[Rfam]
RNA sequence: CAUACUUUGCCAACACUCUGGCCCUUACCUCCUUUCCCUCUGAGGAUCGGUUCAAUCUAUGGUUCGGGCCUAUUUUGGUGCAAAGGAGAUGAUAUCCGUCAGGAAGGUCCACUACUCACCACGACAUCUUACCUUCGGGAGUGGAUGUGGGGGUCCAUCUUUCAGGGCCUAAAU
Numbered sequence: 001c002a003u004a005c006u007u008u009g010c011c012a013a014c015a016c017u018c019u020g021g022c023c024c025u026u027a028c029c030u031c032c033u034u035u036c037c038c039u040c041u042g043a044g045g046a047u048c049g050g051u052u053c054a055a056u057c058u059a060u061g062g063u064u065c066g067g068g069c070c071u072a073u074u075u076u077g078g079u080g081c082a083a084a085g086g087a088g089a090u091g092a093u094a095u096c097c098g099u100c101a102g103g104a105a106g107g108u109c110c111a112c113u114a115c116u117c118a119c120c121a122c123g124a125c126a127u128c129u130u131a132c133c134u135u136c137g138g139g140a141g142u143g144g145a146u147g148u149g150g151g152g153g154u155c156c157a158u159c160u161u162u163c164a165g166g167g168c169c170u171a172a173a174u
Base pairs, nucleotide, nucleotide: 007083008082009081020070021069022068023067024066027063028062029061031050032049035046036045037044106169107168108167109166119153120152122150124148125147126146127145128144129143